This 59-nucleotide RNA from Chrysochloris asiatica belongs to the Rfam family "p27 cis-regulatory element".
Pairs were carried over by alignment from the consensus structure, which was predicted with PFOLD.
Rfam describes the family as follows. This family represents a structured G/C rich element located in the 5' UTR of p27 mRNA. This element contributes to cell-cycle regulated translation and when deleted leads to a 50% drop in regulation. The element is thought to be able to form several different structures with similar free energy. It has been suggested that proteins may only bind to a specific structure thus conformational changes could regulate translation.
RNA sequence: CCACCUUAAGGCCGAGCUAGCCAGCCUGGGCUGGGCGGCUCCCGGCGCUGCAACCAAUA
Number, nucleotide and partner (000 for none) at each position: 001c000002c000003a000004c000005c000006u000007u000008a000009a027010g026011g025012c024013c000014g021015a000016g000017c000018u000019a000020g000021c014022c000023a000024g012025c011026c010027u009028g000029g000030g051031c050032u000033g048034g046035g000036c044037g043038g042039c000040u000041c000042c038043c037044g036045g000046c034047g000048c033049u000050g031051c030052a000053a000054c000055c000056a000057a000058u000059a000